[Rfam]
RNA sequence: CGGGGAAAGAAGACCCUGUUGAGCUUGACUCUAGUCUGACUUUGUGAAAUUGCUGAAGUGGUAUAGCCUAGGUGGGAGCUGAAAGGCGAUCCUGUAAAACCACUACUCUUCAAGUAAUUUUGCUUAUUCCGUGAAAAAGGGGACUGUUUUACAGUUUCUUGCUCUAAGGGUGAACGCAAGUUUGCUCGACCUUCGUGGAAGACAUGGUCAGGUGGGGAGUUUGGCUGGGGCGGCACAUCUGUUAUAAGGUAACGCAGGUGUCCUAAGGUGAGCUCAACGAGAACAGAAAUCUCGUGUAGACCAAAAGGGGAAAAGCUCACUUGAUUUUGAUUUUCAGUACGAAUACAAACCGUGAAAGCGUGGCCUAUCGAUCCUUUAACUUUACAAGUUUUAAGCUAGAGGUGUCAGAAAAGUUACCACAGGGAUAACUGGCUUGUGGCAGCCAAGCGUCCAUAGCGACGUUGCUUUUUGAUCCUUCGAUGUCGGCUCUUCCUAUCAUUGUGAAGCAGAAUUCACAACGUGUCGGAUUGUUCACCCGCUAAUAGGGAACGUGAGCUGGGUUUAGACCGUCGUGAGACAGGUUAGUUUUACCCUA
Dot-bracket structure: ..(((.((......((((.(((((((.((((...(((((((..(((((((((((((((.(..........(((((..((......))............))))).).))))).))))))))))...(((((.....((((..(((((...)))))............(((((..........)))))..))))..))))).....)))))))....))))..((((.....))).)((((((...........))))))..((....((((((((.((((((.......))))))...))((......))....))))))....(((..((((.......))))..))).(((....))).))..........(((((..((((.......)))).))))).........)))))..))))))........(.(.(.((((((...((.......))...))))))...)).)..........(((((((((((..((.((((((......))))))...)).(((.(.....).))).....)))))..)..)))).).....(((((((....))).))))....))..))).
Numbered sequence: 001c002g003g004g005g006a007a008a009g010a011a012g013a014c015c016c017u018g019u020u021g022a023g024c025u026u027g028a029c030u031c032u033a034g035u036c037u038g039a040c041u042u043u044g045u046g047a048a049a050u051u052g053c054u055g056a057a058g059u060g061g062u063a064u065a066g067c068c069u070a071g072g073u074g075g076g077a078g079c080u081g082a083a084a085g086g087c088g089a090u091c092c093u094g095u096a097a098a099a100c101c102a103c104u105a106c107u108c109u110u111c112a113a114g115u116a117a118u119u120u121u122g123c124u125u126a127u128u129c130c131g132u133g134a135a136a137a138a139g140g141g142g143a144c145u146g147u148u149u150u151a152c153a154g155u156u157u158c159u160u161g162c163u164c165u166a167a168g169g170g171u172g173a174a175c176g177c178a179a180g181u182u183u184g185c186u187c188g189a190c191c192u193u194c195g196u197g198g199a200a201g202a203c204a205u206g207g208u209c210a211g212g213u214g215g216g217g218a219g220u221u222u223g224g225c226u227g228g229g230g231c232g233g234c235a236c237a238u239c240u241g242u243u244a245u246a247a248g249g250u251a252a253c254g255c256a257g258g259u260g261u262c263c264u265a266a267g268g269u270g271a272g273c274u275c276a277a278c279g280a281g282a283a284c285a286g287a288a289a290u291c292u293c294g295u296g297u298a299g300a301c302c303a304a305a306a307g308g309g310g311a312a313a314a315g316c317u318c319a320c321u322u323g324a325u326u327u328u329g330a331u332u333u334u335c336a337g338u339a340c341g342a343a344u345a346c347a348a349a350c351c352g353u354g355a356a357a358g359c360g361u362g363g364c365c366u367a368u369c370g371a372u373c374c375u376u377u378a379a380c381u382u383u384a385c386a387a388g389u390u391u392u393a394a395g396c397u398a399g400a401g402g403u404g405u406c407a408g409a410a411a412a413g414u415u416a417c418c419a420c421a422g423g424g425a426u427a428a429c430u431g432g433c434u435u436g437u438g439g440c441a442g443c444c445a446a447g448c449g450u451c452c453a454u455a456g457c458g459a460c461g462u463u464g465c466u467u468u469u470u471g472a473u474c475c476u477u478c479g480a481u482g483u484c485g486g487c488u489c490u491u492c493c494u495a496u497c498a499u500u501g502u503g504a505a506g507c508a509g510a511a512u513u514c515a516c517a518a519c520g521u522g523u524c525g526g527a528u529u530g531u532u533c534a535c536c537c538g539c540u541a542a543u544a545g546g547g548a549a550c551g552u553g554a555g556c557u558g559g560g561u562u563u564a565g566a567c568c569g570u571c572g573u574g575a576g577a578c579a580g581g582u583u584a585g586u587u588u589u590a591c592c593c594u595a
Stems, first nucleotide, its partner, number of pairs: 003594003007589002015423004020419002022415005028220004035212007044123010054112005060106001071104005078087002127200005137193004143155005168187005223236001224234003237259006262363002268320006274300002277295006301310002325349003330344004351360003374401005381395004432473001434471001436470001438466006447457002484559001485557004489551001490548005497522002500517006524538003528534001565583004569578003